[Rfam]
RNA sequence: UAUUGGACUGGGAAUGAAGCUCUCCCUGGAUCGUUGGAUUCAAACCGCACUUUGCUGAUGGCUGCUGUAUAUUU
Numbered sequence: 001u002a003u004u005g006g007a008c009u010g011g012g013a014a015u016g017a018a019g020c021u022c023u024c025c026c027u028g029g030a031u032c033g034u035u036g037g038a039u040u041c042a043a044a045c046c047g048c049a050c051u052u053u054g055c056u057g058a059u060g061g062c063u064g065c066u067g068u069a070u071a072u073u074u
Stems, first nucleotide, its partner, number of pairs: 010026004016065001018063004047055002